[Rfam]
RNA: MIR812 microRNA precursor family
Organism: Oryza brachyantha
RNA sequence: GUUUAACUUUUCGUCUUAUUUAAAAAAAUUACGAUUAAUAUUUUUAUUUUUAUUAGAUUAUAAAAUAUGAAUAGUACUUUACAUGUGACUAAUUUCUUUGAAUUUUUUAUAAAAUUUUCAAAUAAGACGGAUGGUCAAAC
Numbered sequence: 001g002u003u004u005a006a007c008u009u010u011u012c013g014u015c016u017u018a019u020u021u022a023a024a025a026a027a028a029u030u031a032c033g034a035u036u037a038a039u040a041u042u043u044u045u046a047u048u049u050u051u052a053u054u055a056g057a058u059u060a061u062a063a064a065a066u067a068u069g070a071a072u073a074g075u076a077c078u079u080u081a082c083a084u085g086u087g088a089c090u091a092a093u094u095u096c097u098u099u100g101a102a103u104u105u106u107u108u109a110u111a112a113a114a115u116u117u118u119c120a121a122a123u124a125a126g127a128c129g130g131a132u133g134g135u136c137a138a139a140c
Stems, first nucleotide, its partner, number of pairs: 001140004006135003010131010